This 77-nucleotide RNA from Geomonas silvestris belongs to the Rfam family "c-di-GMP-I riboswitch aptamer". From the family's description: GEMM was predicted in a large-scale screen for bacterial structured RNA regulatory elements. The match comes from Rfam's covariance-model search (46 bits).
RNA sequence: ACACGACAAUACUAAACCAUCCGCGAGGGUGGGGCGGAAAGCCUAGGAUCUUCUUGGAAGACAGCCGGGAUGCCGAA
Number, nucleotide and partner (000 for none) at each position: 001a000002c000003a000004c000005g000006a000007c000008a000009a000010u000011a000012c037013u036014a000015a000016a000017c032018c031019a030020u029021c028022c027023g000024c000025g000026a000027g022028g021029g020030u019031g018032g017033g000034g000035c000036g013037g012038a000039a000040a071041g000042c069043c068044u000045a000046g066047g065048a000049u061050c060051u059052u058053c057054u000055u000056g000057g053058a052059a051060g050061a049062c000063a000064g000065c047066c046067g000068g043069g042070a000071u040072g000073c000074c000075g000076a000077a000